[Rfam]
RNA sequence: CCAGUCCGAAAGCCACGAUGCUCGCACCGCACCAGAUAUCCCUUCGUGGUGCAUAUCUCAUUUCGCGAGCGGGCUAAGGUCUGAGCAUUUUAAUCUCCCCCGAUCGACUCUUGCUGGGUCUGGCUUUAACCGCCAACCGACAUACCAGAAAUACGGCGCGCUCUACCCAAUUAUACCCCAAGAUCCUGACAUGGGGAGGGUACGGAGGAGCUGUGGCCUUGGGAAAUGUCGUGGAGAUUGGGCGAACAGUCUUUUAUCUGGUUAUGGAUUGUACUCCGUGUAAUCCCCGGUGCCGAUUGCUCGUCCUUCAGUUCACUUCGUGGCUCACGGCCUUUUUGGCCAUGUAACUCGAUUCAGACUACUCUUGGACUGG
Numbered sequence: 001c002c003a004g005u006c007c008g009a010a011a012g013c014c015a016c017g018a019u020g021c022u023c024g025c026a027c028c029g030c031a032c033c034a035g036a037u038a039u040c041c042c043u044u045c046g047u048g049g050u051g052c053a054u055a056u057c058u059c060a061u062u063u064c065g066c067g068a069g070c071g072g073g074c075u076a077a078g079g080u081c082u083g084a085g086c087a088u089u090u091u092a093a094u095c096u097c098c099c100c101c102g103a104u105c106g107a108c109u110c111u112u113g114c115u116g117g118g119u120c121u122g123g124c125u126u127u128a129a130c131c132g133c134c135a136a137c138c139g140a141c142a143u144a145c146c147a148g149a150a151a152u153a154c155g156g157c158g159c160g161c162u163c164u165a166c167c168c169a170a171u172u173a174u175a176c177c178c179c180a181a182g183a184u185c186c187u188g189a190c191a192u193g194g195g196g197a198g199g200g201u202a203c204g205g206a207g208g209a210g211c212u213g214u215g216g217c218c219u220u221g222g223g224a225a226a227u228g229u230c231g232u233g234g235a236g237a238u239u240g241g242g243c244g245a246a247c248a249g250u251c252u253u254u255u256a257u258c259u260g261g262u263u264a265u266g267g268a269u270u271g272u273a274c275u276c277c278g279u280g281u282a283a284u285c286c287c288c289g290g291u292g293c294c295g296a297u298u299g300c301u302c303g304u305c306c307u308u309c310a311g312u313u314c315a316c317u318u319c320g321u322g323g324c325u326c327a328c329g330g331c332c333u334u335u336u337u338g339g340c341c342a343u344g345u346a347a348c349u350c351g352a353u354u355c356a357g358a359c360u361a362c363u364c365u366u367g368g369a370c371u372g373g
Stems, first nucleotide, its partner, number of pairs: 001373004007367003012324007020070005034058006081357005106120005121135004138231006155218003326344002329341003
RNA: Nuclear RNase P
Organism: Tricholomella constricta